[Rfam]
RNA sequence: UCGCCCAAAAUGCCCUUCAACGGUUUCAACACGGAUGUGGCCGCGGUGCAGCGUGUGAGCGGAUACGAUGCACUCAAGCCGGUCGGCCUUGCGCCGAAUCCCUCCCCGGGGCAUCCCUGCUGGAACCGUUAUCGGCGCAAUGCGCCGUUCCAGCCGGUUCCUACAUUGGUCUCCUCGCGCUAACCCCGUAGCGUGUGGUUUUUAGCGGGCUCUAGGCCCGCUUUUUUUU
Numbered sequence: 001u002c003g004c005c006c007a008a009a010a011u012g013c014c015c016u017u018c019a020a021c022g023g024u025u026u027c028a029a030c031a032c033g034g035a036u037g038u039g040g041c042c043g044c045g046g047u048g049c050a051g052c053g054u055g056u057g058a059g060c061g062g063a064u065a066c067g068a069u070g071c072a073c074u075c076a077a078g079c080c081g082g083u084c085g086g087c088c089u090u091g092c093g094c095c096g097a098a099u100c101c102c103u104c105c106c107c108g109g110g111g112c113a114u115c116c117c118u119g120c121u122g123g124a125a126c127c128g129u130u131a132u133c134g135g136c137g138c139a140a141u142g143c144g145c146c147g148u149u150c151c152a153g154c155c156g157g158u159u160c161c162u163a164c165a166u167u168g169g170u171c172u173c174c175u176c177g178c179g180c181u182a183a184c185c186c187c188g189u190a191g192c193g194u195g196u197g198g199u200u201u202u203u204a205g206c207g208g209g210c211u212c213u214a215g216g217c218c219c220g221c222u223u224u225u226u227u228u229u
Stems, first nucleotide, its partner, number of pairs: 005169003019130010030119002033116006039080003043075001046073005053066004083097005100110003132152001134150002173198002176195007204222008
RNA: Burkholderia sRNA Bp1_Cand871_SIPHT
Organism: Trinickia terrae